The family of this 76-nucleotide sequence from Dendroctonus ponderosae is "mir-2796 microRNA precursor family". A search with the family's covariance model found it, with a score of 82 bits.
RNA sequence: UUAGAAGAACAGGGGUUUCUUUCGGCCUCCAGCAGUUUUCGAGUUGUAGGCCGGCGGAAACUACUUGCUCUUCAUC
Numbered sequence: 001u002u003a004g005a006a007g008a009a010c011a012g013g014g015g016u017u018u019c020u021u022u023c024g025g026c027c028u029c030c031a032g033c034a035g036u037u038u039u040c041g042a043g044u045u046g047u048a049g050g051c052c053g054g055c056g057g058a059a060a061c062u063a064c065u066u067g068c069u070c071u072u073c074a075u076c
Base pairs, nucleotide, nucleotide: 005072006071007070008069010067011066012065013064014062015061016060017059018058019057020056022054023053024052025051026050027049028048030046031045032044
The family's consensus secondary structure was predicted with RNAalifold.